[Rfam]
RNA: SAH (S-adenosyl-L-homocysteine) riboswitch aptamer
RNA sequence: UUUGCCAAGGAGCGCUGCGACGUGUGUUGACCCGUUAAACCCAACACCGCUAGGCUUGGCAAAUGUGGCCCUUAAAGUUUAUUUUUAGAGGCAUUCAACGGCGCUCGCUUUAA
Numbered sequence: 001u002u003u004g005c006c007a008a009g010g011a012g013c014g015c016u017g018c019g020a021c022g023u024g025u026g027u028u029g030a031c032c033c034g035u036u037a038a039a040c041c042c043a044a045c046a047c048c049g050c051u052a053g054g055c056u057u058g059g060c061a062a063a064u065g066u067g068g069c070c071c072u073u074a075a076a077g078u079u080u081a082u083u084u085u086u087a088g089a090g091g092c093a094u095u096c097a098a099c100g101g102c103g104c105u106c107g108c109u110u111u112a113a
Base pairs, nucleotide, nucleotide: 002062003061004060005059006058007057008056021049022048024047025046026045027044028043029042